This 55-nucleotide RNA sequence from Danio rerio belongs to the Rfam family "UnaL2 LINE 3' element". The eel long interspersed element (LINE) UnaL2 and its partner short interspersed element (SINE) share a conserved 3' tail containing a stem-loop that is critical for their retrotransposition. Presumably, the first step of retrotransposition is the recognition of their 3' tails by UnaL2-encoded reverse transcriptase. The solution structure of a 17-nucleotide RNA derived from the 3' tail of UnaL2 was determined by NMR. Pairs were carried over by alignment from the consensus structure, which is taken from published work. Its family is annotated with transposition, RNA-mediated in the Gene Ontology.
RNA sequence: AACUUACAGACCUUUUAAGUCGCUUUGGAUAAAAGCGUCUGCUAAAUGACUAAAU
Numbered sequence: 001a002a003c004u005u006a007c008a009g010a011c012c013u014u015u016u017a018a019g020u021c022g023c024u025u026u027g028g029a030u031a032a033a034a035g036c037g038u039c040u041g042c043u044a045a046a047u048g049a050c051u052a053a054a055u
Base pairs, nucleotide, nucleotide: 013044016041017040021037022036023035024034025033026032
Dot-bracket structure: ............(..((...((((((.....))))))..))..)...........